[Rfam]
RNA sequence: GACUGUCCAUGACGUUAAAAUACUAAAUCCCUGGGAUGUGUUUUAGUUGAUUUCAGUC
Numbered sequence: 001g002a003c004u005g006u007c008c009a010u011g012a013c014g015u016u017a018a019a020a021u022a023c024u025a026a027a028u029c030c031c032u033g034g035g036a037u038g039u040g041u042u043u044u045a046g047u048u049g050a051u052u053u054c055a056g057u058c
Stems, first nucleotide, its partner, number of pairs: 001058005014047010028036003
Dot-bracket structure: (((((........((((((((((....(((...))).))))))))))......)))))

This 58-nucleotide RNA sequence from Mytilus coruscus belongs to the Rfam family "Selenocysteine insertion sequence 1".
The family's RNA type in Rfam is cis-regulatory element.
From the family's description: The incorporation of selenocysteine into a protein sequence is directed by an in-frame UGA codon (usually a stop codon) within the coding region of the mRNA. Selenoprotein mRNAs contain a conserved secondary structure in the 3' UTR that is required for the distinction of UGA stop from UGA selenocysteine.
Pairs were carried over by alignment from the consensus structure, which is taken from published work.
Taxonomically the source falls in Mytilus (Eukaryota, Bivalvia, Mytilida, Mytilinae).